[Rfam]
RNA: mir-393 microRNA precursor family
RNA sequence: AGAGGAAGCAUCCAAAGGGAUCGCAUUGAUCCCAACUAGCUAUCUCUUCCAUGGUUUAAUUUGGAUCAUGCUAUCCCUUUGGAUAUCUCCUU
Numbered sequence: 001a002g003a004g005g006a007a008g009c010a011u012c013c014a015a016a017g018g019g020a021u022c023g024c025a026u027u028g029a030u031c032c033c034a035a036c037u038a039g040c041u042a043u044c045u046c047u048u049c050c051a052u053g054g055u056u057u058a059a060u061u062u063g064g065a066u067c068a069u070g071c072u073a074u075c076c077c078u079u080u081g082g083a084u085a086u087c088u089c090c091u092u
Stems, first nucleotide, its partner, number of pairs: 002092005008086001010084012023071004028067005